[Rfam]
RNA: Mammalian CPEB3 ribozyme
Organism: Alligator mississippiensis
RNA sequence: AGAUCAUAAAUUUGAGGCCAUAGCAGAAGCGCUCAUGGUGAGGCCCCAUCAGAUUCCAAUGAAUCUGCAAAAUCUACU
Dot-bracket structure: ...............((((..[[.[[[..((.......)).))))....(((((((....))))))).....]]].]]
Numbered sequence: 001a002g003a004u005c006a007u008a009a010a011u012u013u014g015a016g017g018c019c020a021u022a023g024c025a026g027a028a029g030c031g032c033u034c035a036u037g038g039u040g041a042g043g044c045c046c047c048a049u050c051a052g053a054u055u056c057c058a059a060u061g062a063a064u065c066u067g068c069a070a071a072a073u074c075u076a077c078u
Stems, first nucleotide, its partner, number of pairs: 016045004022078002025075003030040002050067007